Shown here is a 282-nucleotide RNA from Pontibacillus yanchengensis, a member of the family "BsrG". It is annotated as a small RNA. Rfam 15.1 lists 614 matches to the family in 343 species. Lineage of the source: Bacteria > Bacillota > Bacillaceae > Pontibacillus > Pontibacillus yanchengensis. Rfam's curators write: bsrE, bsrG and bsrH pair through intermolecular interactions with antisense sRNAs.
[Rfam]
RNA sequence: AGUCGUGUUCCUCUUCUGACGUAAAGGGUGGUCGGCUAAUCCCCUGUGAAAGGGGGUGAUGCCUCUGGACGCUUACCAAAUGUUUGUUAUAUUAUUUUCGUUUGGUAGCUUUUUAGUUGGUUUGCUUGGCUUAGUUGUAAAGCUGAUCUCUGAGUUUAUCAACAAAAAAUAGACCUCCCUUACACGCUUAAAUGUUAAGGGGAGGUCUAUCUUGUUUAGGAUGGGCCGAUCCUCUGUUUAAGAGAACACGGACUCGAGCGACCACAGUGCCAGCUGUGGUCG
Numbered sequence: 001a002g003u004c005g006u007g008u009u010c011c012u013c014u015u016c017u018g019a020c021g022u023a024a025a026g027g028g029u030g031g032u033c034g035g036c037u038a039a040u041c042c043c044c045u046g047u048g049a050a051a052g053g054g055g056g057u058g059a060u061g062c063c064u065c066u067g068g069a070c071g072c073u074u075a076c077c078a079a080a081u082g083u084u085u086g087u088u089a090u091a092u093u094a095u096u097u098u099c100g101u102u103u104g105g106u107a108g109c110u111u112u113u114u115a116g117u118u119g120g121u122u123u124g125c126u127u128g129g130c131u132u133a134g135u136u137g138u139a140a141a142g143c144u145g146a147u148c149u150c151u152g153a154g155u156u157u158a159u160c161a162a163c164a165a166a167a168a169a170u171a172g173a174c175c176u177c178c179c180u181u182a183c184a185c186g187c188u189u190a191a192a193u194g195u196u197a198a199g200g201g202g203a204g205g206u207c208u209a210u211c212u213u214g215u216u217u218a219g220g221a222u223g224g225g226c227c228g229a230u231c232c233u234c235u236g237u238u239u240a241a242g243a244g245a246a247c248a249c250g251g252a253c254u255c256g257a258g259c260g261a262c263c264a265c266a267g268u269g270c271c272a273g274c275u276g277u278g279g280u281c282g
Stems, first nucleotide, its partner, number of pairs: 001254004005249003009245001013228001016225002020186003024181005030174001032172001037059001039057001041056005069132001071130003080095003104126004196214003230243002233240001259282010